The record is an 82-nucleotide sequence from Butyricicoccus pullicaecorum, which matches "S10-Clostridia ribosomal protein leader" in Rfam. A reference for the family is Eckert and Weinberg (2020), "Discovery of 20 novel ribosomal leader candidates in bacteria and archaea", BMC Microbiol. A search with the family's covariance model found it, with a score of 43 bits.

RNA sequence: CAAGAGCGAUGAUGCCGGAGAUUGCUGGUAGAAACCAGGUAACUUCGGCGGAGUAGGUCCGACAAUCGGGCGGUUGAGACAA
Numbered sequence: 001c002a003a004g005a006g007c008g009a010u011g012a013u014g015c016c017g018g019a020g021a022u023u024g025c026u027g028g029u030a031g032a033a034a035c036c037a038g039g040u041a042a043c044u045u046c047g048g049c050g051g052a053g054u055a056g057g058u059c060c061g062a063c064a065a066u067c068g069g070g071c072g073g074u075u076g077a078g079a080c081a082a
Stems, first nucleotide, its partner, number of pairs: 014049003018046003025038005057080003063076005